[Rfam]
RNA: SAM-I/IV (S-adenosyl methionine) riboswitch aptamer
RNA sequence: GCCAUUCAUCAAGAGUUGGGAAACCACGCCAACCUGCCUGCCGGUAAGGUGGUUUGCAUAAGCAGAUGCGGCCUUCGGGCAAUGACAGGUAUCCCG
Numbered sequence: 001g002c003c004a005u006u007c008a009u010c011a012a013g014a015g016u017u018g019g020g021a022a023a024c025c026a027c028g029c030c031a032a033c034c035u036g037c038c039u040g041c042c043g044g045u046a047a048g049g050u051g052g053u054u055u056g057c058a059u060a061a062g063c064a065g066a067u068g069c070g071g072c073c074u075u076c077g078g079g080c081a082a083u084g085a086c087a088g089g090u091a092u093c094c095c096g
Stems, first nucleotide, its partner, number of pairs: 007068004015027001017026003028053003033049003036045003040092001071080003